[Rfam]
RNA sequence: UAUUGUGGUGGUUUCUGUGUGUGGCAGAUCUGUGAGUGUAUCAGAACUGCACCAGAACUACCACACAGAUCGGAAAGGAGGAGACUGUGCUGAGAACUUCAAGCUUCAGUUUUCAGCAAUUUGUUCAGCUCCUACAGAA
Numbered sequence: 001u002a003u004u005g006u007g008g009u010g011g012u013u014u015c016u017g018u019g020u021g022u023g024g025c026a027g028a029u030c031u032g033u034g035a036g037u038g039u040a041u042c043a044g045a046a047c048u049g050c051a052c053c054a055g056a057a058c059u060a061c062c063a064c065a066c067a068g069a070u071c072g073g074a075a076a077g078g079a080g081g082a083g084a085c086u087g088u089g090c091u092g093a094g095a096a097c098u099u100c101a102a103g104c105u106u107c108a109g110u111u112u113u114c115a116g117c118a119a120u121u122u123g124u125u126c127a128g129c130u131c132c133u134a135c136a137g138a139a
Base pairs, nucleotide, nucleotide: 005064006063007062008061009060010059011058023052024050025049027047029045030044031043032042077132078131079130080129100123101122102121103120
RNA: Small nucleolar RNA SNORA12